[Rfam]
RNA sequence: GGAGAGGUGGCCGAGUGGUUGAUAGCUCCGGUCUUGAAAACCGGUAUAGUUCAAAACAAAGAACUAUCGAGGGUUCGAAUCCCUCUUCUCUCC
Numbered sequence: 001g002g003a004g005a006g007g008u009g010g011c012c013g014a015g016u017g018g019u020u021g022a023u024a025g026c027u028c029c030g031g032u033c034u035u036g037a038a039a040a041c042c043g044g045u046a047u048a049g050u051u052c053a054a055a056a057c058a059a060a061g062a063a064c065u066a067u068c069g070a071g072g073g074u075u076c077g078a079a080u081c082c083c084u085c086u087u088c089u090c091u092c093c
Stems, first nucleotide, its partner, number of pairs: 001093007009085001010026002013023001015020001028044005047066005070084004
Background
Shown here is a 93-nucleotide RNA from Morella rubra, a member of the family "Selenocysteine transfer RNA". Rfam links the family to the GO term triplet codon-amino acid adaptor activity. The family's consensus secondary structure is taken from published work. Rfam 15.1 lists 4,211 matches to the family in 3,344 species.